Record summary
This 85-nucleotide RNA from Hephaestia caeni belongs to the Rfam family "Fluoride riboswitch aptamer (crcB RNA motif)".
[Rfam]
RNA sequence: CAUUGCACGGGCAAUGGAAUCUGCCUGGCCGAAAUGCCAAACCGCUCGGACUUGGACCCGCCGGGCUGAUGACUCCUACCGACGU
Numbered sequence: 001c002a003u004u005g006c007a008c009g010g011g012c013a014a015u016g017g018a019a020u021c022u023g024c025c026u027g028g029c030c031g032a033a034a035u036g037c038c039a040a041a042c043c044g045c046u047c048g049g050a051c052u053u054g055g056a057c058c059c060g061c062c063g064g065g066c067u068g069a070u071g072a073c074u075c076c077u078a079c080c081g082a083c084g085u
Stems, first nucleotide, its partner, number of pairs: 010025004016076003020072002044066006